[Rfam]
RNA sequence: AUCUGUCCAGUGCCCCUUUUAUAUUGUACUACUGGUGAGUGUACUAUGAAAGCAGUGCAAUGUUAAAAGGGCAGUGGCCGGAGGU
Numbered sequence: 001a002u003c004u005g006u007c008c009a010g011u012g013c014c015c016c017u018u019u020u021a022u023a024u025u026g027u028a029c030u031a032c033u034g035g036u037g038a039g040u041g042u043a044c045u046a047u048g049a050a051a052g053c054a055g056u057g058c059a060a061u062g063u064u065a066a067a068a069g070g071g072c073a074g075u076g077g078c079c080g081g082a083g084g085u
Base pairs, nucleotide, nucleotide: 001085002084003083005079007077008076009075012072013071014070015069017067018066019065022062023061024060025059026058027057028056029055030054

Source information
The family of this 85-nucleotide sequence from Scleropages formosus is "mir-130 microRNA precursor family". Lineage of the source: Eukaryota > Deuterostomia > Actinopterygii > Actinopteri > Scleropages. For this family Rfam cites "Identification of tissue-specific microRNAs from mouse" (Lagos-Quintana et al., Curr Biol, 2002). The match comes from Rfam's covariance-model search (46 bits).